[Rfam]
RNA sequence: CCCAGAGGUAUUGAUUGGUGCGAUUUCAGUACAUUUGUGACUGAAGCCAAUGUUUACACCGACCUACGCGGAUGCGUAGGUUUUUUUU
Number, nucleotide and partner (000 for none) at each position: 001c000002c000003c000004a000005g000006a000007g000008g000009u000010a000011u000012u000013g000014a000015u000016u061017g060018g059019u058020g057021c000022g000023a000024u000025u045026u044027c043028a042029g041030u040031a000032c000033a000034u000035u000036u000037g000038u000039g000040a030041c029042u028043g027044a026045a025046g000047c000048c000049a000050a000051u000052g000053u000054u000055u000056a000057c020058a019059c018060c017061g016062a081063c080064c079065u078066a077067c076068g075069c074070g000071g000072a000073u000074g069075c068076g067077u066078a065079g064080g063081u062082u000083u000084u000085u000086u000087u000088u000
Background: Shown here is an 88-nucleotide RNA sequence from Hafnia alvei, a member of the family "OmrA-B family". The literature on the family includes a 2001 paper in Curr Biol by Argaman et al., "Novel small RNA-encoding genes in the intergenic regions of Escherichia coli". Lineage of the source: Bacteria > Pseudomonadati > Gammaproteobacteria > Hafnia > Hafnia alvei. The family's RNA type in Rfam is small RNA.